[Rfam]
RNA: U1 spliceosomal RNA
Organism: Phyllostomus discolor
RNA sequence: AUACUUACCUGGCAGGGGAGAUACCAUGAUCAGGAGGAUGGUUUUCCCAGGGUGAAGCUCACCCAUUGCACUUUGGGUGUGCUGACCCCUGCGAUCUCCCCUGUGUGAGAAACUCAGCUGCAUAGUUUGUGGUGGUGAGGGACUGCGUCUGCCCUCUCCCCAG
Numbered sequence: 001a002u003a004c005u006u007a008c009c010u011g012g013c014a015g016g017g018g019a020g021a022u023a024c025c026a027u028g029a030u031c032a033g034g035a036g037g038a039u040g041g042u043u044u045u046c047c048c049a050g051g052g053u054g055a056a057g058c059u060c061a062c063c064c065a066u067u068g069c070a071c072u073u074u075g076g077g078u079g080u081g082c083u084g085a086c087c088c089c090u091g092c093g094a095u096c097u098c099c100c101c102u103g104u105g106u107g108a109g110a111a112a113c114u115c116a117g118c119u120g121c122a123u124a125g126u127u128u129g130u131g132g133u134g135g136u137g138a139g140g141g142a143c144u145g146c147g148u149c150u151g152c153c154c155u156c157u158c159c160c161c162a163g
Stems, first nucleotide, its partner, number of pairs: 012121004016048006023042005049090004054086001056083003060079005093115002095112001097110001100107001139160004145154001147152001